[Rfam]
RNA sequence: AGCUGAAUACUCAUGUGUGGGCAUUUUGGCACAUCCCUGAAAUGGAAGGGGGUGUUGCCAUGUCAGUAUUUGAAGCACUACAAUUAGCGAUUGCUUCCGGUAUGUUUACGUUAGCCUUGCUAACCUUAGUGUGGCUAAUGCUGGCAAAUAAAAAAUAGCCCCUCAUGAGUCUUGGCGGACAUGAGAGGGACUAUCCUUCACAAUCUAGCCAAAUGCCCAAGCAGGGAUUCAGCUUACCGUCUAGUUUUUUAACUAGGCGG
Numbered sequence: 001a002g003c004u005g006a007a008u009a010c011u012c013a014u015g016u017g018u019g020g021g022c023a024u025u026u027u028g029g030c031a032c033a034u035c036c037c038u039g040a041a042a043u044g045g046a047a048g049g050g051g052g053u054g055u056u057g058c059c060a061u062g063u064c065a066g067u068a069u070u071u072g073a074a075g076c077a078c079u080a081c082a083a084u085u086a087g088c089g090a091u092u093g094c095u096u097c098c099g100g101u102a103u104g105u106u107u108a109c110g111u112u113a114g115c116c117u118u119g120c121u122a123a124c125c126u127u128a129g130u131g132u133g134g135c136u137a138a139u140g141c142u143g144g145c146a147a148a149u150a151a152a153a154a155a156u157a158g159c160c161c162c163u164c165a166u167g168a169g170u171c172u173u174g175g176c177g178g179a180c181a182u183g184a185g186a187g188g189g190a191c192u193a194u195c196c197u198u199c200a201c202a203a204u205c206u207a208g209c210c211a212a213a214u215g216c217c218c219a220a221g222c223a224g225g226g227a228u229u230c231a232g233c234u235u236a237c238c239g240u241c242u243a244g245u246u247u248u249u250u251a252a253c254u255a256g257g258c259g260g
Stems, first nucleotide, its partner, number of pairs: 001234005007228001008213001010169006017162001019160002031055003035052004062124002065121004076089001099116003178197001214227001216225002237260010
RNA: BsrG